A member of the RNA family "Alphaproteobacteria transfer-messenger RNA" from Methylocapsa palsarum, 358 nucleotides long. Rfam links the family to the GO term RNA catabolic process. The family's RNA type in Rfam is non-coding RNA gene.
RNA sequence: CGCCUUUGUAAAGUUGUCCGCAAUGCUUAUAUUGAUUUUGCCGCCUCGGCGGCUACGGCGAUAAACGGCUUCGAAAUAAGCUCUUCGGACCCGGGGGCGGUACCCGGCGCCUCCACCAAAGCCCGCUUAGCGGCGAAGCGGGUUUCGGCGGGGGCGAAAUAGGUUCGACGGGGAGUGUAAAGGAUGUCCUUUCGCUCGGCAUGGUUCCGCCGUCAUCGGGCCGAUCUUAUAGUUGCCAAUGACAACUAUGCUCCGGUGGCCGUUGCCGCGUAAUGCGGUAAUAGUACCGAAAUUGAAGCCCUUGGGGGUUGCACUCUAAGGCGGGGUUCGGAGGCACCUGGCAACAGAAGCCUCCACU
Numbered sequence: 001c002g003c004c005u006u007u008g009u010a011a012a013g014u015u016g017u018c019c020g021c022a023a024u025g026c027u028u029a030u031a032u033u034g035a036u037u038u039u040g041c042c043g044c045c046u047c048g049g050c051g052g053c054u055a056c057g058g059c060g061a062u063a064a065a066c067g068g069c070u071u072c073g074a075a076a077u078a079a080g081c082u083c084u085u086c087g088g089a090c091c092c093g094g095g096g097g098c099g100g101u102a103c104c105c106g107g108c109g110c111c112u113c114c115a116c117c118a119a120a121g122c123c124c125g126c127u128u129a130g131c132g133g134c135g136a137a138g139c140g141g142g143u144u145u146c147g148g149c150g151g152g153g154g155c156g157a158a159a160u161a162g163g164u165u166c167g168a169c170g171g172g173g174a175g176u177g178u179a180a181a182g183g184a185u186g187u188c189c190u191u192u193c194g195c196u197c198g199g200c201a202u203g204g205u206u207c208c209g210c211c212g213u214c215a216u217c218g219g220g221c222c223g224a225u226c227u228u229a230u231a232g233u234u235g236c237c238a239a240u241g242a243c244a245a246c247u248a249u250g251c252u253c254c255g256g257u258g259g260c261c262g263u264u265g266c267c268g269c270g271u272a273a274u275g276c277g278g279u280a281a282u283a284g285u286a287c288c289g290a291a292a293u294u295g296a297a298g299c300c301c302u303u304g305g306g307g308g309u310u311g312c313a314c315u316c317u318a319a320g321g322c323g324g325g326g327u328u329c330g331g332a333g334g335c336a337c338c339u340g341g342c343a344a345c346a347g348a349a350g351c352c353u354c355c356a357c358u
Stems, first nucleotide, its partner, number of pairs: 040053005057196005067189002069186001071184002081175003085171003091107005108156007197212004202223003206220003324339004330355006